[Rfam]
RNA sequence: UUAUUAUCGUAAUGCGUGAGGGAUGGGAGCGGCAUCCUUUUUUGGGCUUUUCGCCCAAAAAAGAUACAGCGUACAGCCCGACCCGCC
Numbered sequence: 001u002u003a004u005u006a007u008c009g010u011a012a013u014g015c016g017u018g019a020g021g022g023a024u025g026g027g028a029g030c031g032g033c034a035u036c037c038u039u040u041u042u043u044g045g046g047c048u049u050u051u052c053g054c055c056c057a058a059a060a061a062a063g064a065u066a067c068a069g070c071g072u073a074c075a076g077c078c079c080g081a082c083c084c085g086c087c
Stems, first nucleotide, its partner, number of pairs: 020079003024075002029070002034065003040060008

The record is an 87-nucleotide RNA from Flavobacterium sp. KMS, which matches "Flavo-1 RNA" in Rfam.
The base pairs follow the family's consensus structure, which is taken from published work.
Taxonomically the source falls in Flavobacterium (Bacteria, Bacteroidota, Flavobacteriia, Flavobacteriales).
The family's RNA type in Rfam is small RNA.